MIR2275 microRNA precursor family: an 84-nucleotide RNA from Elaeis guineensis. Rfam links the family to the GO terms RISC complex and miRNA-mediated post-transcriptional gene silencing.
[Rfam]
RNA sequence: GUUCUGAAGGUGAGAGUUGCAGGAAACUGAACCCUUCAAGCAUACAUGAGGGCUCAGUUUCCUCCAACAUCUCACUUUCAUUGG
Numbered sequence: 001g002u003u004c005u006g007a008a009g010g011u012g013a014g015a016g017u018u019g020c021a022g023g024a025a026a027c028u029g030a031a032c033c034c035u036u037c038a039a040g041c042a043u044a045c046a047u048g049a050g051g052g053c054u055c056a057g058u059u060u061c062c063u064c065c066a067a068c069a070u071c072u073c074a075c076u077u078u079c080a081u082u083g084g
Base pairs, nucleotide, nucleotide: 005080006079007078008077011074012073013072014071016068017067018066019065021063023061024060025059026058027057028056029055030054032052033051034050035049
A search with the family's covariance model found it, with a score of 61 bits. The source organism's lineage runs through Eukaryota, Viridiplantae, Spermatophyta, Liliopsida and Elaeis.